[Rfam]
RNA sequence: UUCUUAUCUAGAGAGAUGGAGGGACUGGCCCUUUGAUAUCUCAGCAACAGAUCACUUGAUACUGUGCUAAUUCCUACAAGCAAUUUGCUUGGAAGAUAGGGA
Dot-bracket structure: ((((((((....(((((...(((...[[)))......)))))((((.((.(((....)))..))))))...(]]..((((((...))))))..)))))))))